[Rfam]
RNA sequence: UAAAAGGGCCUCUGCUGUGCGUAGCACAGAAUCAGACAUAAUUAUGUUCGAUUCUGCGGAAUGGUUAUCAAGACAUUUCGGAGGAAUAAUGUUUAGAAAUCGAGCUGCUAUGUUUCAUAUAACUGGCGCUCCU
Dot-bracket structure: ........(((((((((....)))))(((((((.((((......)))).)))))))(((((((..........))))))))))).................((((.((((...((.....)).))))))))..